[Rfam]
RNA: Mammalian CPEB3 ribozyme
RNA sequence: GUUGCAAGUUUGAGGCCCUAGUUGAAGUGCUCACAACACAGUCUUGUCAGAUUCCAAUGAAUCUGUGAAUUCUGCU
Numbered sequence: 001g002u003u004g005c006a007a008g009u010u011u012g013a014g015g016c017c018c019u020a021g022u023u024g025a026a027g028u029g030c031u032c033a034c035a036a037c038a039c040a041g042u043c044u045u046g047u048c049a050g051a052u053u054c055c056a057a058u059g060a061a062u063c064u065g066u067g068a069a070u071u072c073u074g075c076u
Stems, first nucleotide, its partner, number of pairs: 013044004020076003024072003027039003048065007